[Rfam]
RNA sequence: GCCGCGCCUAGCCUUUGGCCGGGCGAACCUGGGAACACUCGCAACCCAGUGGCGCGGCUCCUUUAUUGCGGG
Numbered sequence: 001g002c003c004g005c006g007c008c009u010a011g012c013c014u015u016u017g018g019c020c021g022g023g024c025g026a027a028c029c030u031g032g033g034a035a036c037a038c039u040c041g042c043a044a045c046c047c048a049g050u051g052g053c054g055c056g057g058c059u060c061c062u063u064u065a066u067u068g069c070g071g072g
Base pairs, nucleotide, nucleotide: 001058002057003056004055005054006053007052008051011024012023013022014021029049030048031047032046033045038072039071040070041069042068043067
A member of the RNA family "int-alpA RNA" from Methylomagnum ishizawai, 72 nucleotides long. By type it is a small RNA. Pairs were carried over by alignment from the consensus structure, which is taken from published work. NCBI's taxonomy places the organism under Bacteria, Gammaproteobacteria, Methylococcales, Methylococcaceae, Methylomagnum. A search with the family's covariance model found it, with a score of 43 bits.